[Rfam]
RNA sequence: CCAAUCCCCCCCGGACCGCUCCACGCUUUCCGGUUCGCCGGGGCAACAUAAGGAGGAAACAUCCGCCGGCCGGCGGUGCGGCAGUGUGGAGACCUGCCGUAAGCCCGUUCGGGUCACGCUCCCGGACGGGGAGGUCCCUGUGCGGAGGCAGAGGGACUGCGGCCCAUCAGUAUGUCU
Numbered sequence: 001c002c003a004a005u006c007c008c009c010c011c012c013g014g015a016c017c018g019c020u021c022c023a024c025g026c027u028u029u030c031c032g033g034u035u036c037g038c039c040g041g042g043g044c045a046a047c048a049u050a051a052g053g054a055g056g057a058a059a060c061a062u063c064c065g066c067c068g069g070c071c072g073g074c075g076g077u078g079c080g081g082c083a084g085u086g087u088g089g090a091g092a093c094c095u096g097c098c099g100u101a102a103g104c105c106c107g108u109u110c111g112g113g114u115c116a117c118g119c120u121c122c123c124g125g126a127c128g129g130g131g132a133g134g135u136c137c138c139u140g141u142g143c144g145g146a147g148g149c150a151g152a153g154g155g156a157c158u159g160c161g162g163c164c165c166a167u168c169a170g171u172a173u174g175u176c177u
Stems, first nucleotide, its partner, number of pairs: 006043004012037007063076004068164005077101008086093002104130009133158007141150003
RNA: malK-I RNA